[Rfam]
RNA: Selenocysteine transfer RNA
Organism: Vescimonas coprocola
RNA sequence: GGGAGUAGAUGGGUUCUGGUGUGCCCCCUGGUCUUCAAAACCAGUGUAGGUGGUGAACAGCCGCCCUGGUGGGUUCGAUUCCCACAUACUUCC
Numbered sequence: 001g002g003g004a005g006u007a008g009a010u011g012g013g014u015u016c017u018g019g020u021g022u023g024c025c026c027c028c029u030g031g032u033c034u035u036c037a038a039a040a041c042c043a044g045u046g047u048a049g050g051u052g053g054u055g056a057a058c059a060g061c062c063g064c065c066c067u068g069g070u071g072g073g074u075u076c077g078a079u080u081c082c083c084a085c086a087u088a089c090u091u092c093c
Base pairs, nucleotide, nucleotide: 001093002092003091004090005089006088007087008085011026012025013024014023016021028044029043030042031041032040049065050064051063070084071083072082073081